[Rfam]
RNA sequence: AGGUCAUUUCAGAGAGGGCUUUUGGGUCUGUGAAACCAGAGCUCUUAACACUAUGACCAAAGAUUGAGUUCUCUGAAGGAUGCCACACUCAAUAGUGCUAUGUUUUCCUGAAGAGAUGCAAGA
Numbered sequence: 001a002g003g004u005c006a007u008u009u010c011a012g013a014g015a016g017g018g019c020u021u022u023u024g025g026g027u028c029u030g031u032g033a034a035a036c037c038a039g040a041g042c043u044c045u046u047a048a049c050a051c052u053a054u055g056a057c058c059a060a061a062g063a064u065u066g067a068g069u070u071c072u073c074u075g076a077a078g079g080a081u082g083c084c085a086c087a088c089u090c091a092a093u094a095g096u097g098c099u100a101u102g103u104u105u106u107c108c109u110g111a112a113g114a115g116a117u118g119c120a121a122g123a
Stems, first nucleotide, its partner, number of pairs: 002058006014046008023038001026036001070116005077109004085101001086097004
Rfam assigns this 123-nucleotide RNA from Equus caballus to the family "Small nucleolar RNA SNORA25".
The base pairs follow the family's consensus structure, which was predicted with RNAfold.
Rfam 15.1 lists 1,129 matches to the family in 449 species.
Its family is annotated with RNA processing and nucleolus in the Gene Ontology.
Rfam classes the family as an H/ACA-box small nucleolar RNA.
ACA25 is a member of the H/ACA class of snoRNA that guide the sites of modification of uridines to pseudouridines.
The match comes from Rfam's covariance-model search (109 bits).